[Rfam]
RNA sequence: CUACAAACUCGUGCUAUCGCGGCAUUUAUGCCGAGGAAAGUCUGGACAGCAAAGAGCAGUUUACCGGUGAAUAACCGGGUUUCAGAUUUUUAUUUGGAAACAGAAAGUGCCACAGAAAAUAACCGCCGGCAAAAUGCAGGUAAGGGUGAAAAUGUGCGGUAAGAGCGCACAGCAAAAUGCAGUAAUGUACUUUGCGGGUAAACCUUAAACGCUGCAAUGCCACGUAUAGUUGUGUUUGAGGGCGGCUCGUCCGAUGCUUCGGCAACACAACAGGGUAGGCAGCAACACCAAAACAGUAAUGUUUUGGGCAGAUAAAUGAUAGCAUAGAAACAGAAUCCGGCUUACGAGGUUUGUAGCUUU
Numbered sequence: 001c002u003a004c005a006a007a008c009u010c011g012u013g014c015u016a017u018c019g020c021g022g023c024a025u026u027u028a029u030g031c032c033g034a035g036g037a038a039a040g041u042c043u044g045g046a047c048a049g050c051a052a053a054g055a056g057c058a059g060u061u062u063a064c065c066g067g068u069g070a071a072u073a074a075c076c077g078g079g080u081u082u083c084a085g086a087u088u089u090u091u092a093u094u095u096g097g098a099a100a101c102a103g104a105a106a107g108u109g110c111c112a113c114a115g116a117a118a119a120u121a122a123c124c125g126c127c128g129g130c131a132a133a134a135u136g137c138a139g140g141u142a143a144g145g146g147u148g149a150a151a152a153u154g155u156g157c158g159g160u161a162a163g164a165g166c167g168c169a170c171a172g173c174a175a176a177a178u179g180c181a182g183u184a185a186u187g188u189a190c191u192u193u194g195c196g197g198g199u200a201a202a203c204c205u206u207a208a209a210c211g212c213u214g215c216a217a218u219g220c221c222a223c224g225u226a227u228a229g230u231u232g233u234g235u236u237u238g239a240g241g242g243c244g245g246c247u248c249g250u251c252c253g254a255u256g257c258u259u260c261g262g263c264a265a266c267a268c269a270a271c272a273g274g275g276u277a278g279g280c281a282g283c284a285a286c287a288c289c290a291a292a293a294c295a296g297u298a299a300u301g302u303u304u305u306g307g308g309c310a311g312a313u314a315a316a317u318g319a320u321a322g323c324a325u326a327g328a329a330a331c332a333g334a335a336u337c338c339g340g341c342u343u344a345c346g347a348g349g350u351u352u353g354u355a356g357c358u359u360u
Stems, first nucleotide, its partner, number of pairs: 001356009011345001012324007020033005038343003042340005047214004054260002059210005064078005079101001080099008102205002107203002109199003123145002125141003129137003153171006174193003178189004218281004229271005255264003288307008
This 360-nucleotide RNA sequence from Arachidicoccus soli belongs to the Rfam family "Bacterial RNase P class A".
The match comes from Rfam's covariance-model search (234 bits).
The source organism's lineage runs through Bacteria, Pseudomonadati, Bacteroidota, Chitinophagales and Arachidicoccus.
Ribonuclease P (RNase P) is a ubiquitous endoribonuclease, found in archaea, bacteria and eukarya as well as chloroplasts and mitochondria. Its best characterised activity is the generation of mature 5'-ends of tRNAs by cleaving the 5'-leader elements of precursor-tRNAs.